[Rfam]
The family of this 87-nucleotide RNA from Salicibibacter halophilus is "BsrC". For this family Rfam cites "Novel small RNA-encoding genes in the intergenic regions of Bacillus subtilis" (Saito et al., Gene, 2008). The 301 nucleotide sequence from Kouji Nakamura has been trimmed to a highly conserved ~85 nucleotide long core to form this family. It is annotated as a small RNA. Rfam 15.1 lists 572 matches to the family in 553 species.
RNA sequence: CGUUCUCAACACAACGAAAGCCCUUCCUACUCUUUCAUCAUUGCGGUUCCGUGACCGCGCCAUAGGAAUUGAGCAUGUUCUUUUCUU
Numbered sequence: 001c002g003u004u005c006u007c008a009a010c011a012c013a014a015c016g017a018a019a020g021c022c023c024u025u026c027c028u029a030c031u032c033u034u035u036c037a038u039c040a041u042u043g044c045g046g047u048u049c050c051g052u053g054a055c056c057g058c059g060c061c062a063u064a065g066g067a068a069u070u071g072a073g074c075a076u077g078u079u080c081u082u083u084u085c086u087u
Base pairs, nucleotide, nucleotide: 035067036066041062042059043058044057045056046055047054048053